A member of the RNA family "PreQ1 (pre queuosine) riboswitch aptamer" from Clostridium sp. chh4-2, 45 nucleotides long. Its family is annotated with queuosine biosynthetic process in the Gene Ontology. The match comes from Rfam's covariance-model search (54 bits). Rfam describes the family as follows. This family is a bacterial riboswitch that binds to the metabolite preQ1, an intermediate in the biosynthesis of the modified nucleoside queuosine from GTP. One example of this riboswitch is located in the leader of the Bacillus subtilis ykvJKLM (queCDEF) operon which encodes four genes necessary for queuosine production.
RNA sequence: UCUGGACUGGUUCGAAAACUUCCCAGUAUAAAAAACUAAGGAUUG
Numbered sequence: 001u002c003u004g005g006a007c008u009g010g011u012u013c014g015a016a017a018a019c020u021u022c023c024c025a026g027u028a029u030a031a032a033a034a035a036c037u038a039a040g041g042a043u044u045g
Base pairs, nucleotide, nucleotide: 006027007026008025009024010023016037